[Rfam]
RNA sequence: AAGGCAGACUGGGCAAUCGCGGUAUUUCGGUAUCGAGGAAGGUCCGGACUCCACAGGGCGGGAUAGCGGCUAACGGCCGCCCGUUCGGGCUCGCGGCUUCGGCCGCGUGCCCGGGCGAGGAACAGGGCCACAGAGACGAGUCUGCCGCGAGGGCGCGUGCGCACCCGUACGGCCAUCUCCGUACGGCGCGUCUUGGCAACAAGGCGCGGCGCGGCAGGGUGAAACGCGGCAACCUCUAUCCGGAGCAACAUCAAAUAGGCAUGCGCCGGCCCCUCGGGGCUGAAAGGGCGGCUCGUCCGAGCAUGCGGGUAGAUGGCUAGAGUGCGCCAGCAAUGUCGCACCCAGAGGAAUGAUUGCCCGCCGAACCUCGCGUGCGGCGUACAGAAUCCGGCCUAUAGGUCUGUCUUGCCU
Numbered sequence: 001a002a003g004g005c006a007g008a009c010u011g012g013g014c015a016a017u018c019g020c021g022g023u024a025u026u027u028c029g030g031u032a033u034c035g036a037g038g039a040a041g042g043u044c045c046g047g048a049c050u051c052c053a054c055a056g057g058g059c060g061g062g063a064u065a066g067c068g069g070c071u072a073a074c075g076g077c078c079g080c081c082c083g084u085u086c087g088g089g090c091u092c093g094c095g096g097c098u099u100c101g102g103c104c105g106c107g108u109g110c111c112c113g114g115g116c117g118a119g120g121a122a123c124a125g126g127g128c129c130a131c132a133g134a135g136a137c138g139a140g141u142c143u144g145c146c147g148c149g150a151g152g153g154c155g156c157g158u159g160c161g162c163a164c165c166c167g168u169a170c171g172g173c174c175a176u177c178u179c180c181g182u183a184c185g186g187c188g189c190g191u192c193u194u195g196g197c198a199a200c201a202a203g204g205c206g207c208g209g210c211g212c213g214g215c216a217g218g219g220u221g222a223a224a225c226g227c228g229g230c231a232a233c234c235u236c237u238a239u240c241c242g243g244a245g246c247a248a249c250a251u252c253a254a255a256u257a258g259g260c261a262u263g264c265g266c267c268g269g270c271c272c273c274u275c276g277g278g279g280c281u282g283a284a285a286g287g288g289c290g291g292c293u294c295g296u297c298c299g300a301g302c303a304u305g306c307g308g309g310u311a312g313a314u315g316g317c318u319a320g321a322g323u324g325c326g327c328c329a330g331c332a333a334u335g336u337c338g339c340a341c342c343c344a345g346a347g348g349a350a351u352g353a354u355u356g357c358c359c360g361c362c363g364a365a366c367c368u369c370g371c372g373u374g375c376g377g378c379g380u381a382c383a384g385a386a387u388c389c390g391g392c393c394u395a396u397a398g399g400u401c402u403g404u405c406u407u408g409c410c411u
Base pairs, nucleotide, nucleotide: 001407002406003405004404005403006402007401008400009399010398011396012358013357014356015355016354017353018352020035021034022033023032024031025030040394041393042392044391045390046389047388048387049245050244051243052242056294057293058292059291061241062240063239064238065237066080067079068078069077070076081119082117083116084115085114086113087112088111089110090109120236121235125234126233127230128229129228142218143217144215145214146213147212148211149210152207249315250314251313252312259306260305261304262303263302264301286298287297288296289295322341323340324339325338326337328335329334
A member of the RNA family "Bacterial RNase P class A" from Pusillimonas noertemannii, 411 nucleotides long. Rfam classes the family as a ribozyme.